Annotation: A member of the RNA family "Purine riboswitch aptamer" from Terrihalobacillus insolitus, 102 nucleotides long. The base pairs follow the family's consensus structure, which is taken from published work. It scores 84 bits against the family's covariance model.
RNA sequence: AUUCAUAUAGACCUUUUCCUUCAUAUAUACCUGAUAAUAAGGGUCAGGAGUCUCUACCAAAGUACCGUAAAUACUUUGACUAUGAAGGUGGAAAUCGGAUGA
Numbered sequence: 001a002u003u004c005a006u007a008u009a010g011a012c013c014u015u016u017u018c019c020u021u022c023a024u025a026u027a028u029a030c031c032u033g034a035u036a037a038u039a040a041g042g043g044u045c046a047g048g049a050g051u052c053u054c055u056a057c058c059a060a061a062g063u064a065c066c067g068u069a070a071a072u073a074c075u076u077u078g079a080c081u082a083u084g085a086a087g088g089u090g091g092a093a094a095u096c097g098g099a100u101g102a
Stems, first nucleotide, its partner, number of pairs: 018088008030048006058078007